[Rfam]
RNA: MIR6274 microRNA precursor family
Organism: Prunus avium
RNA sequence: GGAUAGUACUAUUUUGCUUUUCCUGGCCAACAACACAGUGACACGUGGAAAAGUUAUCCUAUGUGUCAUUGCGUUAUUGGCCAGGGAUAGCAAAAAAUAUUA
Numbered sequence: 001g002g003a004u005a006g007u008a009c010u011a012u013u014u015u016g017c018u019u020u021u022c023c024u025g026g027c028c029a030a031c032a033a034c035a036c037a038g039u040g041a042c043a044c045g046u047g048g049a050a051a052a053g054u055u056a057u058c059c060u061a062u063g064u065g066u067c068a069u070u071g072c073g074u075u076a077u078u079g080g081c082c083a084g085g086g087a088u089a090g091c092a093a094a095a096a097a098u099a100u101u102a
Stems, first nucleotide, its partner, number of pairs: 012095007020087001022085009032075003036071013050057001